[Rfam]
RNA sequence: UUUAUCUUCGCUUGUAAGUCGCUUUGGAUAAAAGCGUCUGCUAAAUGAUUCAAU
Numbered sequence: 001u002u003u004a005u006c007u008u009c010g011c012u013u014g015u016a017a018g019u020c021g022c023u024u025u026g027g028a029u030a031a032a033a034g035c036g037u038c039u040g041c042u043a044a045a046u047g048a049u050u051c052a053a054u
Stems, first nucleotide, its partner, number of pairs: 013043001014041003020036006
This 54-nucleotide RNA from Danio rerio belongs to the Rfam family "UnaL2 LINE 3' element".
For this family Rfam cites "Solution structure of an RNA stem-loop derived from the 3' conserved region of eel LINE UnaL2" (Baba et al., RNA, 2004).